RNA sequence: UUUUGUUGGAUGAAUGUGAGGCGUUGGAUUAAUUUCACUCAAUCUGAGCCCCAUAUUCAUCAAGGGUUCGU
Number, nucleotide and partner (000 for none) at each position: 001u000002u000003u000004u066005g000006u064007u063008g000009g061010a060011u059012g058013a057014a056015u055016g054017u053018g052019a000020g050021g049022c048023g000024u047025u046026g045027g044028a043029u042030u041031a000032a039033u000034u000035u000036c000037a000038c000039u032040c000041a030042a029043u028044c027045u026046g025047a024048g022049c021050c020051c000052c018053a017054u016055a015056u014057u013058c012059a011060u010061c009062a000063a007064g006065g000066g004067u000068u000069c000070g000071u000

MIR6151 microRNA precursor family: a 71-nucleotide RNA sequence from Nicotiana tabacum. The organism belongs to Nicotiana, within Eukaryota. A search with the family's covariance model found it, with a score of 80 bits.